[Rfam]
RNA sequence: GUUGCUUCCCUACUGGAUGAGUGGCCUCCAUUGGGUCAUUUCUCAGUGAGAAGCAUACAUUUAACUUGGCCAGUAUUAAACAGCAUGGUGCUUUUUAUUGUUGCAUUGUGUUACCUGUCUCCUGGUAAAUGU
Number, nucleotide and partner (000 for none) at each position: 001g000002u000003u055004g054005c053006u052007u051008c050009c000010c000011u000012a000013c000014u000015g000016g000017a000018u000019g042020a041021g040022u038023g037024g036025c035026c034027u000028c000029c000030a000031u000032u000033g000034g026035g025036u024037c023038a022039u000040u021041u020042c019043u000044c000045a000046g000047u000048g000049a000050g008051a007052a006053g005054c004055a003056u000057a000058c000059a000060u000061u000062u000063a000064a000065c000066u000067u000068g000069g126070c125071c124072a123073g122074u000075a120076u000077u000078a000079a000080a000081c000082a112083g111084c110085a000086u108087g107088g106089u105090g104091c000092u000093u000094u000095u000096u000097a000098u000099u000100g000101u000102u000103g000104c090105a089106u088107u087108g086109u000110g084111u083112u082113a000114c000115c000116u000117g000118u000119c000120u075121c000122c073123u072124g071125g070126u069127a000128a000129a000130u000131g000132u000